[Rfam]
RNA sequence: CCGUCACUGUUGCUAAUAUGCAACUCUGUUCACACAGCUGGAAUUGCACUUUAGCAAUGGUGACGG
Numbered sequence: 001c002c003g004u005c006a007c008u009g010u011u012g013c014u015a016a017u018a019u020g021c022a023a024c025u026c027u028g029u030u031c032a033c034a035c036a037g038c039u040g041g042a043a044u045u046g047c048a049c050u051u052u053a054g055c056a057a058u059g060g061u062g063a064c065g066g
Base pairs, nucleotide, nucleotide: 005062006061007060008059009058010057011056012055013054014053015052016051019048020047021046022045023044025042026041027040028039
Source information
Shown here is a 66-nucleotide RNA sequence from Rousettus aegyptiacus, a member of the family "mir-367 microRNA precursor family". Pairs were carried over by alignment from the consensus structure, which was predicted with RNAalifold. NCBI's taxonomy places the organism under Eukaryota, Chordata, Eutheria, Rousettinae, Rousettus.